[Rfam]
RNA sequence: AAUCUGUCACGGAUAACCUAGUGGGAGGCCUGCCGCCAAGUCAGUAACCUUGCUUCGGCCAUGUGCCAGCGGGUUCGCGUGCCCGGUACGAACCUUGGGGUCGCCAUUACACUCGUGCGAGUAAUCCACGACGCUGUGAGGCGCUAAGCAAUGGAAGUGACCCUUGAGGGAAGCAAUUCUGCAGAGACACUUCCACCCUGGGGUGGCGUCGCCGGAAUACACCGACCCGUUACAGGGAAAUUGGCUGCUUGGUAGGACAACUGCUGCUU
Numbered sequence: 001a002a003u004c005u006g007u008c009a010c011g012g013a014u015a016a017c018c019u020a021g022u023g024g025g026a027g028g029c030c031u032g033c034c035g036c037c038a039a040g041u042c043a044g045u046a047a048c049c050u051u052g053c054u055u056c057g058g059c060c061a062u063g064u065g066c067c068a069g070c071g072g073g074u075u076c077g078c079g080u081g082c083c084c085g086g087u088a089c090g091a092a093c094c095u096u097g098g099g100g101u102c103g104c105c106a107u108u109a110c111a112c113u114c115g116u117g118c119g120a121g122u123a124a125u126c127c128a129c130g131a132c133g134c135u136g137u138g139a140g141g142c143g144c145u146a147a148g149c150a151a152u153g154g155a156a157g158u159g160a161c162c163c164u165u166g167a168g169g170g171a172a173g174c175a176a177u178u179c180u181g182c183a184g185a186g187a188c189a190c191u192u193c194c195a196c197c198c199u200g201g202g203g204u205g206g207c208g209u210c211g212c213c214g215g216a217a218u219a220c221a222c223c224g225a226c227c228c229g230u231u232a233c234a235g236g237g238a239a240a241u242u243g244g245c246u247g248c249u250u251g252g253u254a255g256g257a258c259a260a261c262u263g264c265u266g267c268u269u
Stems, first nucleotide, its partner, number of pairs: 002014003019266006027258001029256006035249001039246007048237003070229003075225003079222003083215005088209003092204009102143001104141002108138004113131005119126002144148001152195007163186003170179003
The record is a 269-nucleotide sequence from Penicillium ucsense, which matches "Fungal signal recognition particle RNA" in Rfam. Rfam classes the family as a non-coding RNA gene. A reference for the family is Wild et al. (2002), "Towards the structure of the mammalian signal recognition particle", Curr Opin Struct Biol. The organism belongs to Penicillium, within Eukaryota. The family is grouped with related families in Rfam's "SRP clan". Its family is annotated with signal recognition particle, plasma membrane targeting, signal recognition particle, endoplasmic reticulum targeting and SRP-dependent cotranslational protein targeting to membrane, signal sequence recognition in the Gene Ontology. A search with the family's covariance model found it, with a score of 163 bits. Pairs were carried over by alignment from the consensus structure, which is taken from published work.